A member of the RNA family "Small nucleolar RNA SNORD113/SNORD114 family" from Tupaia belangeri, 76 nucleotides long. The source organism's lineage runs through Eukaryota, Bilateria, Craniata, Teleostomi and Tupaia belangeri. A search with the family's covariance model found it, with a score of 41 bits. Clan: SNORD74 clan. The family's RNA type in Rfam is C/D-box small nucleolar RNA. From the family's description: The imprinted human domain at 14q32 contains two clusters of tandemly repeated small nucleolar RNAs named 14q(I) and 14q(II) snoRNAs. The family has 59 seed sequences and 5,721 matches in Rfam 15.1.
RNA sequence: UGGAUCAAUGACGAGUACGCGUGGGGCAUCUGAAUCAGACGUUGGGUUAAACCCAGUCUGUAACUCUGAGGCUCAC
Numbered sequence: 001u002g003g004a005u006c007a008a009u010g011a012c013g014a015g016u017a018c019g020c021g022u023g024g025g026g027c028a029u030c031u032g033a034a035u036c037a038g039a040c041g042u043u044g045g046g047u048u049a050a051a052c053c054c055a056g057u058c059u060g061u062a063a064c065u066c067u068g069a070g071g072c073u074c075a076c
Base pairs, nucleotide, nucleotide: 002074003073005071006070